Annotation: Ribosomal protein L13 leader: a 52-nucleotide RNA from Lacticaseibacillus manihotivorans. A reference for the family is Zengel and Lindahl (1994), "Diverse mechanisms for regulating ribosomal protein synthesis in Escherichia coli", Prog Nucleic Acid Res Mol Biol. By type it is a cis-regulatory leader. Rfam's curators write: This family is a putative r-protein leader autoregulatory structure found in B. subtilis and other low-GC Gram-positive bacteria. It is located in the 5' untranslated regions of mRNAs encoding the L13-S9 (rplM-rpsI) ribosomal protein operon.
RNA sequence: GGUAUUGUUUGCCCCACGAUAAGCCCCGGAAACUUAACGUGUCAAACACUCA
Numbered sequence: 001g002g003u004a005u006u007g008u009u010u011g012c013c014c015c016a017c018g019a020u021a022a023g024c025c026c027c028g029g030a031a032a033c034u035u036a037a038c039g040u041g042u043c044a045a046a047c048a049c050u051c052a
Base pairs, nucleotide, nucleotide: 006048007047008046009045010044011043015041016040017039018038020036021035022034023033